[Rfam]
RNA sequence: UACUCACAAUACUGUAAGUCACUUUGGAUAAAGGUGUCUGCUAAAUGGCAUAUA
Number, nucleotide and partner (000 for none) at each position: 001u000002a000003c000004u000005c000006a000007c000008a000009a000010u000011a000012c000013u043014g041015u040016a039017a000018g000019u000020c036021a035022c034023u033024u032025u031026g000027g000028a000029u000030a000031a025032a024033g023034g022035u021036g020037u000038c000039u016040g015041c014042u000043a013044a000045a000046u000047g000048g000049c000050a000051u000052a000053u000054a000